[Rfam]
RNA sequence: UAGCUUAAUAGUUUAGCCGAGAGGCUAAUGGCUGGUGGUUUAUUGACCACCGGCCU
Numbered sequence: 001u002a003g004c005u006u007a008a009u010a011g012u013u014u015a016g017c018c019g020a021g022a023g024g025c026u027a028a029u030g031g032c033u034g035g036u037g038g039u040u041u042a043u044u045g046a047c048c049a050c051c052g053g054c055c056u
Base pairs, nucleotide, nucleotide: 014027015026016025017024018023030055031054032053033052034051035050036049037048038047039046
A member of the RNA family "Pseudomonas sRNA P26" from Vibrio viridaestus, 56 nucleotides long. By type it is a non-coding RNA gene. Rfam's curators write: This small RNA (sRNA) was computationally identified in the genome of the opportunistic pathogen Pseudomonas aeruginosa and its expression verified by northern blot analysis. P26 is conserved across many Gammaproteobacteria species and appears to be consistently located between the DNA directed RNA polymerase (beta subunit) and 50S ribosomal protein L7/L12 genes. Pairs were carried over by alignment from the consensus structure, which was predicted with RNAalifold.